[Rfam]
RNA sequence: AGCCCGCUGUCUCGUAUGGCUUUUUAUUCCUAUGUGAUUUAUGCAUCCCACUUCAUAUAGGGAUUGAAGCCGUGCAAUACACUGGGGU
Numbered sequence: 001a002g003c004c005c006g007c008u009g010u011c012u013c014g015u016a017u018g019g020c021u022u023u024u025u026a027u028u029c030c031u032a033u034g035u036g037a038u039u040u041a042u043g044c045a046u047c048c049c050a051c052u053u054c055a056u057a058u059a060g061g062g063a064u065u066g067a068a069g070c071c072g073u074g075c076a077a078u079a080c081a082c083u084g085g086g087g088u
Stems, first nucleotide, its partner, number of pairs: 003086004008081003012077001014075010026064012
RNA: mir-135 microRNA precursor family